c-di-GMP-I riboswitch aptamer: a 99-nucleotide sequence from Capsulimonas corticalis.
RNA sequence: ACUCGACAAAGGCAAACUCUCUGAAAGGGGAGGACGCAAAGCGAUGGACCUAAACCGAGCUUCCUUUAGGAAGGCCGGCAUGGCCGCCACGUUUCCGAA
Numbered sequence: 001a002c003u004c005g006a007c008a009a010a011g012g013c014a015a016a017c018u019c020u021c022u023g024a025a026a027g028g029g030g031a032g033g034a035c036g037c038a039a040a041g042c043g044a045u046g047g048a049c050c051u052a053a054a055c056c057g058a059g060c061u062u063c064c065u066u067u068a069g070g071a072a073g074g075c076c077g078g079c080a081u082g083g084c085c086g087c088c089a090c091g092u093u094u095c096c097g098a099a
Base pairs, nucleotide, nucleotide: 012037013036017032018031019030020029021028022027040093041092042091043090045089046088047087049083050082055078056077057076

The organism belongs to Capsulimonas, within Bacteria.